Small Cajal body specific RNA 4: a 130-nucleotide sequence from Xenopus tropicalis. Clan: SCARNA4 clan. The match comes from Rfam's covariance-model search (77 bits). NCBI's taxonomy places the organism under Eukaryota, Opisthokonta, Vertebrata, Amphibia, Silurana. scaRNAs are a specific class of small nuclear RNAs which localise to the Cajal bodies and guide the modification of RNA polymerase II transcribed spliceosomal RNAs U1, U2, U4, U5 and U12. ACA26 belongs to the H/ACA box class of guide RNAs as it has the predicted hairpin-hinge-hairpin-tail structure, conserved H/ACA-box motifs and is found associated with GAR1. The family has 24 seed sequences and 634 matches in Rfam 15.1. Its family is annotated with RNA processing, nucleolus and Cajal body in the Gene Ontology. The literature on the family includes a 2002 paper in EMBO J by Darzacq et al., "Cajal body-specific small nuclear RNAs: a novel class of 2'-O-methylation and pseudouridylation guide RNAs".
[Rfam]
RNA sequence: GCCGGAGGGAUAAGAAAGCAAAGUCUGAGAAGUGAGGCUCUGCUGAUACCACCCUCCUAGAGUAACGGGGCGGAGAGAGAGCAGCUCGGCUCUAAGGUUCAGCUGCUGCUCCCUGCACUGUCCAACAUCA
Numbered sequence: 001g002c003c004g005g006a007g008g009g010a011u012a013a014g015a016a017a018g019c020a021a022a023g024u025c026u027g028a029g030a031a032g033u034g035a036g037g038c039u040c041u042g043c044u045g046a047u048a049c050c051a052c053c054c055u056c057c058u059a060g061a062g063u064a065a066c067g068g069g070g071c072g073g074a075g076a077g078a079g080a081g082c083a084g085c086u087c088g089g090c091u092c093u094a095a096g097g098u099u100c101a102g103c104u105g106c107u108g109c110u111c112c113c114u115g116c117a118c119u120g121u122c123c124a125a126c127a128u129c130a
Base pairs, nucleotide, nucleotide: 002060004057005056006055007054008053009052017044018043019042022039023038024037025036026035067123068122069121078114079113080110081109082108083107084106085105089103090102091101
Dot-bracket structure: .(.((((((.......(((..(((((........)))))..))).......))))))..)......(((........((((((((...(((.........))).))))))..))......))).......